Notes
Shown here is an 80-nucleotide RNA sequence from Hermetia illucens, a member of the family "drz-agam-1 ribozyme". On this family, see Webb et al., Science 2009: "Widespread occurrence of self-cleaving ribozymes". It scores 39 bits against the family's covariance model. Taxonomically the source falls in Hermetia (Eukaryota, Eumetazoa, Altocrustacea, Insecta). The base pairs follow the family's consensus structure, which is taken from published work.

RNA sequence: UACUACUAAAACCUUAUCUCCACCUCCACGUGGUGAUCGCUAGGAGUUUUUCCUUUAUGGAAAACUGCAGACGGAGAAGG
Numbered sequence: 001u002a003c004u005a006c007u008a009a010a011a012c013c014u015u016a017u018c019u020c021c022a023c024c025u026c027c028a029c030g031u032g033g034u035g036a037u038c039g040c041u042a043g044g045a046g047u048u049u050u051u052c053c054u055u056u057a058u059g060g061a062a063a064a065c066u067g068c069a070g071a072c073g074g075a076g077a078a079g080g
Stems, first nucleotide, its partner, number of pairs: 013080003017076001019074002022034003046066001048064006